[Rfam]
RNA: Mycobacterium sRNA Ms_IGR-8
Organism: Mycobacterium adipatum
RNA sequence: CCGAGGACUUUCUGCGAACGUGAAGCUGCUGCGGGUUCUCUGAAGAAACUCGCAGCAGCUUU
Numbered sequence: 001c002c003g004a005g006g007a008c009u010u011u012c013u014g015c016g017a018a019c020g021u022g023a024a025g026c027u028g029c030u031g032c033g034g035g036u037u038c039u040c041u042g043a044a045g046a047a048a049c050u051c052g053c054a055g056c057a058g059c060u061u062u
Stems, first nucleotide, its partner, number of pairs: 022062014039045001